[Rfam]
RNA sequence: AUAUGCCUAUGUGUGAAUAGUGUUCAGCACCAAGGUCAGGUAUGUUUGCCUGUGUGUGGAUGGUGUUCAGCACCAAGGACAGGUGUAUUUUCGA
Numbered sequence: 001a002u003a004u005g006c007c008u009a010u011g012u013g014u015g016a017a018u019a020g021u022g023u024u025c026a027g028c029a030c031c032a033a034g035g036u037c038a039g040g041u042a043u044g045u046u047u048g049c050c051u052g053u054g055u056g057u058g059g060a061u062g063g064u065g066u067u068c069a070g071c072a073c074c075a076a077g078g079a080c081a082g083g084u085g086u087a088u089u090u091u092c093g094a
Base pairs, nucleotide, nucleotide: 004085005084006083007082008081010079018075020073021072022071023070024069026067027066028065029064030063031062032061034055037052038051039050040049041048042047
Shown here is a 94-nucleotide sequence from Branchiostoma belcheri, a member of the family "mir-2060 microRNA precursor family". Gene Ontology terms of the family: miRNA-mediated post-transcriptional gene silencing and RISC complex.